Rfam assigns this 139-nucleotide sequence from Digitaria exilis to the family "Small nucleolar RNA Z247". The match comes from Rfam's covariance-model search (65 bits). The family has 8 seed sequences and 7,071 matches in Rfam 15.1. The family's RNA type in Rfam is C/D-box small nucleolar RNA. For this family Rfam cites "The high diversity of snoRNAs in plants: identification and comparative study of 120 snoRNA genes from Oryza sativa" (Chen et al., Nucleic Acids Res, 2003). Gene Ontology terms of the family: nucleolus and RNA processing. The family's consensus secondary structure was predicted with PFOLD.
RNA sequence: AAACUUGAUGAUAAUGAUCUUGUUUCCUAUAUUCUUGCUGGGUUGGAUGCAGAAUUCAAUCCUCUUGUCUCGGCGAUUGCCACCCGCGUCGAGCCCGUCUCUGUUGGAGAGCUUAUCUCCCAGAUGGACAGCUUUGAGC
Numbered sequence: 001a002a003a004c005u006u007g008a009u010g011a012u013a014a015u016g017a018u019c020u021u022g023u024u025u026c027c028u029a030u031a032u033u034c035u036u037g038c039u040g041g042g043u044u045g046g047a048u049g050c051a052g053a054a055u056u057c058a059a060u061c062c063u064c065u066u067g068u069c070u071c072g073g074c075g076a077u078u079g080c081c082a083c084c085c086g087c088g089u090c091g092a093g094c095c096c097g098u099c100u101c102u103g104u105u106g107g108a109g110a111g112c113u114u115a116u117c118u119c120c121c122a123g124a125u126g127g128a129c130a131g132c133u134u135u136g137a138g139c
Base pairs, nucleotide, nucleotide: 004138005137006136007135008134089107090106091105092104